[Rfam]
Record summary:
Rfam assigns this 44-nucleotide sequence from Alkalihalobacillus alcalophilus to the family "PreQ1 (pre queuosine) riboswitch aptamer". The match comes from Rfam's covariance-model search (46 bits). A reference for the family is Reader et al. (2004), "Identification of four genes necessary for biosynthesis of the modified nucleoside queuosine", J Biol Chem. This family is a bacterial riboswitch that binds to the metabolite preQ1, an intermediate in the biosynthesis of the modified nucleoside queuosine from GTP. One example of this riboswitch is located in the leader of the Bacillus subtilis ykvJKLM (queCDEF) operon which encodes four genes necessary for queuosine production. PreQ1 binding to the riboswitch aptamer is thought to induce premature transcription termination within the leader to down-regulate expression of these genes.

RNA sequence: CCAUAAGAGGUUCGCAAACUCCCUCUAUAAAAAACUAUACAAGA
Numbered sequence: 001c002c003a004u005a006a007g008a009g010g011u012u013c014g015c016a017a018a019c020u021c022c023c024u025c026u027a028u029a030a031a032a033a034a035c036u037a038u039a040c041a042a043g044a
Stems, first nucleotide, its partner, number of pairs: 006026005016036001